Background:
A member of the RNA family "Small nucleolar RNA SNORA31" from Diceros bicornis, 130 nucleotides long.
[Rfam]
RNA sequence: AUGCACCUGUUUGACAGACCUGGAGCAGGUACUGUCUACUGCAAUGAUUUCCACUACAGAUGCAAGAAAAAAGUACCCUCACAUUUUCUGUCUGAUUGUGACAGCCAAGAAUGAAUGGAGGAAUAUAGGA
Numbered sequence: 001a002u003g004c005a006c007c008u009g010u011u012u013g014a015c016a017g018a019c020c021u022g023g024a025g026c027a028g029g030u031a032c033u034g035u036c037u038a039c040u041g042c043a044a045u046g047a048u049u050u051c052c053a054c055u056a057c058a059g060a061u062g063c064a065a066g067a068a069a070a071a072a073g074u075a076c077c078c079u080c081a082c083a084u085u086u087u088c089u090g091u092c093u094g095a096u097u098g099u100g101a102c103a104g105c106c107a108a109g110a111a112u113g114a115a116u117g118g119a120g121g122a123a124u125a126u127a128g129g130a
Stems, first nucleotide, its partner, number of pairs: 002064004007059002012053002016050003020046001024040002027037003077121004084113001087110003092104003096100001
Description
Rfam links the family to the GO terms RNA processing and nucleolus. About the family: ACA31 (SNORA31) belongs to the H/ACA class of snoRNAs which are thought to guide the sites of modification of uridines to pseudouridines. ACA31 is predicted to guide the pseudouridylation of U3713 in 28S rRNA and U218 in 18S rRNA. This family includes the mouse homologue snoMBI-161.